Notes:
The record is a 442-nucleotide part of an RNA from Neocallimastix californiae, which matches "Eukaryotic large subunit ribosomal RNA" in Rfam. Lineage of the source: Eukaryota > Neocallimastigomycota > Neocallimastigales > Neocallimastigaceae > Neocallimastix.
RNA sequence: GGUAGUAGCAAAUAUUCAAAUGAGAACUUUGAAGACUGAAGUGGAGAAAGGUUCCAUGUGAACAGCAGUUGGACAUGGGUAAGUCGAUCCUAAGAGAUAGGGAAGCUCCGUUUUAAAGUUGAACGAUUUUUCGUUCCACCUUAUCAAAAGGGAAUCCGGUUAAUAUUCCGGAACUAGGCUAUGGAUAUUUACUACGGUAACGUAAAUGAACUAGGAGACACCAGUAGGAAUCCUGGGAAGAGUUAUCUUUUCUUUUUAACAAUCUAAUCACCCUGAAAUCAGAUUAACUGGAGAAAGGGUAGUAUGGUUGGCAAAGCAUUCCUCUUUUGGAAUGUCCGGUGCGUUCCUAACGGUCCUUGAAAAUCCUGGGGAAAUAAUAAUUUUCAUACCUAGCCGUACUCAUAACCGCAGCAGGUCUCCAAGGUUAACAGCCUCUAGUUGA
Dot-bracket structure: ..............((((((.......))))))((((.....((((..((...((((((...((.....)).))))))......((..((...(((((.(((....))))))......(.(((..........))).).....))....))...(((((........)))))..((((.((((((.......((((....))))......((((((...(((..(((((((.(((((((((.........))))))...(((((.....(((((....((((.....))))....))))).....)))))......((((((......))))))..)))...)))))))..))).........))))))............).)))))))))..))..)).....((......)).)))).((((.....))))..))))..